[Rfam]
This 281-nucleotide RNA sequence from Alkaliphilus oremlandii belongs to the Rfam family "T-box leader". The family's RNA type in Rfam is cis-regulatory leader. For this family Rfam cites "Interaction between the acceptor end of tRNA and the T box stimulates antitermination in the Bacillus subtilis tyrS gene: a new role for the discriminator base" (Grundy et al., J Bacteriol, 1994). The source organism's lineage runs through Bacteria, Clostridia, Peptostreptococcales, Alkaliphilus and Alkaliphilus oremlandii. The family has 48 seed sequences and 19,395 matches in Rfam 15.1. Its family is annotated with tRNA binding in the Gene Ontology.

Nucleotides: 281
Base pairs, nucleotide, nucleotide: 007102008101015097016096017095018094025085026084027083028082029081030080039073040072049071050070051069052068053067054066105135106134107133108132137149138148139147228239229238230237244278245277246276247275255274256273257272258271259270260269261268
Number, partner (000 for none) and nucleotide at each position: 001000a002000u003000a004000a005000a006000u007102a008101c009000g010000a011000u012000g013000a014000a015097g016096a017095a018094a019000a020000g021000a022000g023000u024000a025085u026084g027083u028082a029081u030080a031000a032000g033000g034000a035000a036000g037000u038000a039073g040072u041000c042000c043000c044000a045000g046000c047000g048000a049071g050070u051069u052068g053067g054066u055000g056000a057000u058000a059000g060000u061000g062000c063000a064000a065000g066054a067053c068052c069051a070050a071049u072040a073039c074000g075000a076000a077000g078000c079000c080030u081029g082028u083027a084026c085025a086000g087000a088000a089000g090000a091000a092000c093000a094018u095017u096016u097015c098000u099000g100000a101008g102007u103000u104000c105135c106134u107133a108132a109000c110000c111000g112000a113000a114000a115000u116000c117000c118000a119000u120000a121000g122000g123000a124000g125000a126000g127000u128000a129000g130000a131000c132108u133107u134106a135105g136000g137149c138148g139147g140000a141000g142000c143000c144000a145000a146000a147139c148138c149137g150000u151000u152000a153000u154000c155000c156000a157000u158000u159000g160000g161000a162000c163000a164000g165000u166000a167000u168000c169000g170000a171000g172000g173000c174000a175000u176000a177000u178000u179000g180000g181000g182000a183000u184000a185000u186000c187000c188000u189000u190000u191000u192000u193000a194000g195000a196000g197000g198000u199000u200000a201000u202000u203000u204000u205000a206000u207000u208000u209000c210000u211000c212000c213000g214000u215000a216000c217000u218000g219000a220000u221000u222000u223000g224000a225000g226000a227000u228239a229238g230237c231000g232000a233000u234000u235000g236000a237230g238229c239228u240000a241000a242000u243000u244278a245277a246276g247275g248000u249000g250000g251000u252000a253000c254000c255274g256273c257272g258271a259270a260269a261268g262000u263000c264000a265000a266000g267000u268261c269260u270259u271258u272257c273256g274255u275247c276246c277245u278244u279000a280000u281000u